[Rfam]
RNA sequence: CUGGGAUGAUGAAAUUUAGCCAAAUCAGACGUUUGCUCCUUGAGGCAAUUUAUUCUAGUCUUGUACCUGUUGUUUUUGUGGAGACACUCUGGUGAUCUUUUCUAACACUUGAUCAAGCUCUAGA
Numbered sequence: 001c002u003g004g005g006a007u008g009a010u011g012a013a014a015u016u017u018a019g020c021c022a023a024a025u026c027a028g029a030c031g032u033u034u035g036c037u038c039c040u041u042g043a044g045g046c047a048a049u050u051u052a053u054u055c056u057a058g059u060c061u062u063g064u065a066c067c068u069g070u071u072g073u074u075u076u077u078g079u080g081g082a083g084a085c086a087c088u089c090u091g092g093u094g095a096u097c098u099u100u101u102c103u104a105a106c107a108c109u110u111g112a113u114c115a116a117g118c119u120c121u122a123g124a
Stems, first nucleotide, its partner, number of pairs: 001123004
This 124-nucleotide RNA from Aquilegia coerulea belongs to the Rfam family "small nucleolar RNA snoR127". Pairs were carried over by alignment from the consensus structure, which was predicted with RNAalifold. For this family Rfam cites "Mining small RNA sequencing data: a new approach to identify small nucleolar RNAs in Arabidopsis" (Chen and Wu, Nucleic Acids Res, 2009). Gene Ontology terms of the family: RNA processing and nucleolus. The organism belongs to Aquilegia, within Eukaryota. By type it is a C/D-box small nucleolar RNA. A search with the family's covariance model found it, with a score of 47 bits.